Rfam assigns this 135-nucleotide sequence from Meloidogyne enterolobii to the family "Nematode snoRNA ceN39". The organism belongs to Meloidogyne, within Eukaryota. By type it is an H/ACA-box small nucleolar RNA. The literature on the family includes a 2007 paper in BMC Mol Biol by Jia et al., "Systematic identification of non-coding RNA 2,2,7-trimethylguanosine cap structures in Caenorhabditis elegans". Pairs were carried over by alignment from the consensus structure, which was predicted with RNAalifold.
RNA sequence: ACGGCGUGUAGGAACCAGUCAAGGCGUAAACGAGUCUUGAAUGGGCCGAAAAUCGCCAAAAAUAUUGUUAAGAGUAAUGGUCGCAUUGAAAUAAAUAAUUAUAAUUCAGUGCAUUUACCCAACUCUUAUACAAGA
Numbered sequence: 001a002c003g004g005c006g007u008g009u010a011g012g013a014a015c016c017a018g019u020c021a022a023g024g025c026g027u028a029a030a031c032g033a034g035u036c037u038u039g040a041a042u043g044g045g046c047c048g049a050a051a052a053u054c055g056c057c058a059a060a061a062a063u064a065u066u067g068u069u070a071a072g073a074g075u076a077a078u079g080g081u082c083g084c085a086u087u088g089a090a091a092u093a094a095a096u097a098a099u100u101a102u103a104a105u106u107c108a109g110u111g112c113a114u115u116u117a118c119c120c121a122a123c124u125c126u127u128a129u130a131c132a133a134g135a
Stems, first nucleotide, its partner, number of pairs: 003057004011047002015044003019040007070127005079119003083112002086109005092104001094102001